[Rfam]
RNA: mir-1 microRNA precursor family
Organism: Nasonia vitripennis
RNA sequence: GCGUCUGUUCCGUGCUUCCUUACUUCCCAUAGUGCACGUGACGUAUGGAAUGUAAAGAAGUAUGGAGCCGCGCU
Numbered sequence: 001g002c003g004u005c006u007g008u009u010c011c012g013u014g015c016u017u018c019c020u021u022a023c024u025u026c027c028c029a030u031a032g033u034g035c036a037c038g039u040g041a042c043g044u045a046u047g048g049a050a051u052g053u054a055a056a057g058a059a060g061u062a063u064g065g066a067g068c069c070g071c072g073c074u
Stems, first nucleotide, its partner, number of pairs: 007068012020055004025050001027048005